[Rfam]
RNA sequence: GGUGCCUGCCGGGAACGAGCGUAUAGUACGAGAGGAACUCCGCUCGGGCGCCACUGGUGUACCGGUUGUUCGAGAGAGCACUGCCGGGCAGCCACGCGCCACGGGGUAAGAGCUGAACGCAUCUAAGCUCGAAACCCACCCGAAAACGAGGCACCGUUGAGGUCUCGCCUACAACAGGCGUUCGAUAGACUCGGGGUGUACGCGUCGAGGCAACGAGACGUUCAGCCCGCGAGCACUAACAGACCAAGCCG
Number, nucleotide and partner (000 for none) at each position: 001g155002g154003u153004g152005c151006c150007u149008g000009c000010c142011g141012g140013g139014a000015a000016c046017g045018a044019g043020c042021g041022u000023a039024u000025a000026g000027u000028a000029c000030g000031a000032g000033a000034g000035g000036a000037a000038c000039u023040c000041c021042g020043c019044u018045c017046g016047g100048g099049c098050g097051c096052c000053a000054c000055u094056g093057g092058u000059g000060u000061a000062c087063c086064g085065g084066u083067u080068g079069u078070u077071c076072g000073a000074g000075a000076g071077a070078g069079c068080a067081c000082u000083g066084c065085c064086g063087g062088g000089c000090a000091g000092c057093c056094a055095c000096g051097c050098g049099c048100c047101a000102c000103g137104g136105g135106g000107u000108a000109a000110g130111a129112g128113c127114u126115g000116a000117a000118c000119g000120c000121a000122u000123c000124u000125a000126a114127g113128c112129u111130c110131g000132a000133a000134a000135c105136c104137c103138a000139c013140c012141c011142g010143a000144a000145a000146a000147c000148g000149a007150g006151g005152c004153a003154c002155c001156g000157u000158u000159g000160a000161g245162g244163u243164c242165u000166c180167g179168c178169c177170u000171a000172c000173a000174a000175c000176a000177g169178g168179c167180g166181u000182u000183c000184g000185a000186u238187a237188g236189a000190c233191u232192c231193g230194g228195g227196g226197u000198g000199u000200a000201c000202g221203c220204g219205u218206c217207g000208a000209g214210g000211c000212a000213a000214c209215g000216a000217g206218a205219c204220g203221u202222u000223c000224a000225g000226c196227c195228c194229g000230c193231g192232a191233g190234c000235a000236c188237u187238a186239a000240c000241a000242g164243a163244c162245c161246a000247a000248g000249c000250c000251g000
Overview: Rfam assigns this 251-nucleotide part of an RNA from uncultured archaeon A07HR60 to the family "Archaeal large subunit ribosomal RNA". The match comes from Rfam's covariance-model search (2720 bits). Its family is annotated with ribosome and structural constituent of ribosome in the Gene Ontology. The family is grouped with related families in Rfam's "LSU clan".